[Rfam]
RNA sequence: UGCAGUAAUGAUGAUCCUACAGACCUGUAAUGAUGUUUGCAAACAUGAUUGCGAAAUUUUUGAACAUCUAAGGGACUGAACUGCC
Dot-bracket structure: .(((((.........................................................................))))).
Numbered sequence: 001u002g003c004a005g006u007a008a009u010g011a012u013g014a015u016c017c018u019a020c021a022g023a024c025c026u027g028u029a030a031u032g033a034u035g036u037u038u039g040c041a042a043a044c045a046u047g048a049u050u051g052c053g054a055a056a057u058u059u060u061u062g063a064a065c066a067u068c069u070a071a072g073g074g075a076c077u078g079a080a081c082u083g084c085c
Stems, first nucleotide, its partner, number of pairs: 002084005
A member of the RNA family "Small nucleolar RNA SNORD25" from Spirodela intermedia, 85 nucleotides long. For this family Rfam cites "Identification of 10 novel snoRNA gene clusters from Arabidopsis thaliana" (Qu et al., Nucleic Acids Res, 2001). The organism belongs to Spirodela, within Eukaryota. It is annotated as a C/D-box small nucleolar RNA. The base pairs follow the family's consensus structure, which was predicted with PFOLD. The family is grouped with related families in Rfam's "SNORD25 clan". Rfam 15.1 lists 985 matches to the family in 241 species.